[Rfam]
RNA sequence: GUCAUAGACCCCACGGCUGAAGCCGGGGGCUUGUCCUCCAGGUUUCGGCCGUAGGCCACGAGGCCUCGCUAUGAUCAGCCUCAGAGGCCUGACCCGAAGGACAAGGGGAUGAAGGCCCUACGUUACCGGGGAGAGCCAGAGUUCGCACUCCGGGAUGCUCCUCCAGUCCCGAGACCCUGCAACCCGGCGGUUAAACAGCGAGCUGGGGGUGCAGCGAGCGGUGCCGCCGGGAGGAGGCCGCCCGGUAACAUUGGCGAGGAGGGAGGCUG
Numbered sequence: 001g002u003c004a005u006a007g008a009c010c011c012c013a014c015g016g017c018u019g020a021a022g023c024c025g026g027g028g029g030c031u032u033g034u035c036c037u038c039c040a041g042g043u044u045u046c047g048g049c050c051g052u053a054g055g056c057c058a059c060g061a062g063g064c065c066u067c068g069c070u071a072u073g074a075u076c077a078g079c080c081u082c083a084g085a086g087g088c089c090u091g092a093c094c095c096g097a098a099g100g101a102c103a104a105g106g107g108g109a110u111g112a113a114g115g116c117c118c119u120a121c122g123u124u125a126c127c128g129g130g131g132a133g134a135g136c137c138a139g140a141g142u143u144c145g146c147a148c149u150c151c152g153g154g155a156u157g158c159u160c161c162u163c164c165a166g167u168c169c170c171g172a173g174a175c176c177c178u179g180c181a182a183c184c185c186g187g188c189g190g191u192u193a194a195a196c197a198g199c200g201a202g203c204u205g206g207g208g209g210u211g212c213a214g215c216g217a218g219c220g221g222u223g224c225c226g227c228c229g230g231g232a233g234g235a236g237g238c239c240g241c242c243c244g245g246u247a248a249c250a251u252u253g254g255c256g257a258g259g260a261g262g263g264a265g266g267c268u269g
Stems, first nucleotide, its partner, number of pairs: 001075007010029002012026001016023002030042004078255003083119002086116001122249009145180002149174002151171006157268001159266002162263002183231009195222002198219002202215003